[Rfam]
RNA sequence: GGGCUGUGAUGAUGAAUAAGUGAAAGUCAUGCACCACUCUGAGUGACAAAGUGCUGAUAACUCUUUCACACCCAUUUUCUAUCUGAGCUC
Numbered sequence: 001g002g003g004c005u006g007u008g009a010u011g012a013u014g015a016a017u018a019a020g021u022g023a024a025a026g027u028c029a030u031g032c033a034c035c036a037c038u039c040u041g042a043g044u045g046a047c048a049a050a051g052u053g054c055u056g057a058u059a060a061c062u063c064u065u066u067c068a069c070a071c072c073c074a075u076u077u078u079c080u081a082u083c084u085g086a087g088c089u090c
Stems, first nucleotide, its partner, number of pairs: 001090004
Rfam assigns this 90-nucleotide RNA sequence from Acer yangbiense to the family "Small nucleolar RNA Z221/R21b". The family's consensus secondary structure was predicted with WAR. The match comes from Rfam's covariance-model search (73 bits). Its family is annotated with RNA processing and nucleolus in the Gene Ontology.